[Rfam]
Notes
A member of the RNA family "Lysine riboswitch aptamer" from Catenibacterium sp. CAG:290, 167 nucleotides long. Taxonomically the source falls in Catenibacterium (Bacteria, Bacillota, Erysipelotrichia, Coprobacillaceae). The base pairs follow the family's consensus structure, which is taken from published work.
Nucleotides: 167
Base pairs, nucleotide, nucleotide: 006162007161008160009159010158011157017079018078019077020076021075022074025071033063034062035061036060037059038058083110084109085108086107089104090103091102092101093100094099111137112136114134115133118130119129120128121127139151140150141149142148143147
Number, partner (000 for none) and nucleotide at each position: 001000u002000a003000u004000a005000a006162a007161g008160a009159u010158a011157g012000a013000g014000g015000a016000a017079g018078c019077g020076a021075u022074g023000c024000a025071u026000c027000a028000g029000a030000g031000u032000a033063g034062u035061a036060u037059g038058a039000g040000g041000a042000g043000u044000c045000g046000g047000c048000a049000g050000a051000c052000u053000a054000a055000g056000a057000a058038u059037c060036a061035u062034a063033u064000g065000a066000a067000a068000g069000g070000u071025a072000a073000u074022c075021a076020u077019c078018g079017c080000c081000g082000a083110a084109a085108g086107a087000a088000g089104a090103u091102a092101a093100g094099c095000g096000g097000c098000a099094g100093c101092u102091u103090a104089u105000a106000g107086u108085c109084u110083u111137g112136g113000g114134g115133a116000u117000u118130c119129a120128g121127g122000a123000a124000a125000u126000a127121c128120c129119u130118g131000u132000c133115u134114c135000a136112c137111u138000c139151c140150u141149u142148c143147a144000u145000g146000a147143u148142g149141a150140a151139g152000a153000g154000g155000c156000g157011u158010u159009a160008u161007c162006u163000a164000a165000u166000c167000g